[Rfam]
RNA sequence: GGACAUAAACGCGCUCGUAAUAAGCGGAUCGGACCCGGGGGCGGUACCCGGCGACUCCACCAAUCACCCUUCAUUUGGGGGCGGAUCGGGGUCGAAACAGGAUCGACGAACGUCUAAAGGGGUUAUGCUUUGUCUCGGCGGGGUGCCACCGUAUCGGCCCGAACAGUACAAUUGCAAAUGACAAUCGUGCUCCGGUUGCUCUGGCCGCGUAA
Numbered sequence: 001g002g003a004c005a006u007a008a009a010c011g012c013g014c015u016c017g018u019a020a021u022a023a024g025c026g027g028a029u030c031g032g033a034c035c036c037g038g039g040g041g042c043g044g045u046a047c048c049c050g051g052c053g054a055c056u057c058c059a060c061c062a063a064u065c066a067c068c069c070u071u072c073a074u075u076u077g078g079g080g081g082c083g084g085a086u087c088g089g090g091g092u093c094g095a096a097a098c099a100g101g102a103u104c105g106a107c108g109a110a111c112g113u114c115u116a117a118a119g120g121g122g123u124u125a126u127g128c129u130u131u132g133u134c135u136c137g138g139c140g141g142g143g144u145g146c147c148a149c150c151g152u153a154u155c156g157g158c159c160c161g162a163a164c165a166g167u168a169c170a171a172u173u174g175c176a177a178a179u180g181a182c183a184a185u186c187g188u189g190c191u192c193c194g195g196u197u198g199c200u201c202u203g204g205c206c207g208c209g210u211a212a
Stems, first nucleotide, its partner, number of pairs: 001135005013123004025112002029109003035051005052094007136151003
Rfam assigns this 212-nucleotide RNA from Roseovarius nanhaiticus to the family "permuted transfer-messenger RNA". A search with the family's covariance model found it, with a score of 130 bits.